[Rfam]
RNA sequence: GUGCCUUAAACUAAUGAGUAAGGAAAAUAAUAAGCCUUGGUGACGCUUGGCUACAUACGUAAGCCUCGUGCAUACGGUGCUAAUUUUUGGAGAGGUAUAGGUCGUCCCUGGGUGAGUGCCCGCCUACUUUGUGGGUGCUCAAUGCCUGGGUGCUUACGAUUUGCCUC
Numbered sequence: 001g002u003g004c005c006u007u008a009a010a011c012u013a014a015u016g017a018g019u020a021a022g023g024a025a026a027a028u029a030a031u032a033a034g035c036c037u038u039g040g041u042g043a044c045g046c047u048u049g050g051c052u053a054c055a056u057a058c059g060u061a062a063g064c065c066u067c068g069u070g071c072a073u074a075c076g077g078u079g080c081u082a083a084u085u086u087u088u089g090g091a092g093a094g095g096u097a098u099a100g101g102u103c104g105u106c107c108c109u110g111g112g113u114g115a116g117u118g119c120c121c122g123c124c125u126a127c128u129u130u131g132u133g134g135g136u137g138c139u140c141a142a143u144g145c146c147u148g149g150g151u152g153c154u155u156a157c158g159a160u161u162u163g164c165c166u167c
Base pairs, nucleotide, nucleotide: 004023005022006021007020008019033052034051035050036049039046058076059075060074092167093166094165095164096163099162100161101160102159103158104157105156108150109149110147111146112145113144114143119135120134121133122132123131

This 167-nucleotide RNA sequence from Daphnia galeata belongs to the Rfam family "U12 minor spliceosomal RNA". Its family is annotated with mRNA branch site recognition, U12 snRNP and pre-mRNA branch point binding in the Gene Ontology. The match comes from Rfam's covariance-model search (100 bits). Lineage of the source: Eukaryota > Bilateria > Branchiopoda > Cladocera > Daphnia. The family is grouped with related families in Rfam's "U2 clan". By type it is a spliceosomal small nuclear RNA.